The family of this 68-nucleotide sequence from Prolemur simus is "mir-302 microRNA precursor family". The source organism's lineage runs through Eukaryota, Bilateria, Dipnotetrapodomorpha, Lemuridae and Prolemur. Rfam links the family to the GO terms miRNA-mediated post-transcriptional gene silencing and RISC complex. Its Rfam clan is "mir-290 clan".
RNA sequence: CCUUUGCUUUAACAUGGGGGUACGUGCUGCGUGAAUCAAAAAGUAGUGCUUCCAUGUUUCAGUGGAGG
Numbered sequence: 001c002c003u004u005u006g007c008u009u010u011a012a013c014a015u016g017g018g019g020g021u022a023c024g025u026g027c028u029g030c031g032u033g034a035a036u037c038a039a040a041a042a043g044u045a046g047u048g049c050u051u052c053c054a055u056g057u058u059u060c061a062g063u064g065g066a067g068g
Base pairs, nucleotide, nucleotide: 001068002067003066005064006063007062008061011058012057013056014055015054016053017052018051019050020049021048022047023046025045026044027043028042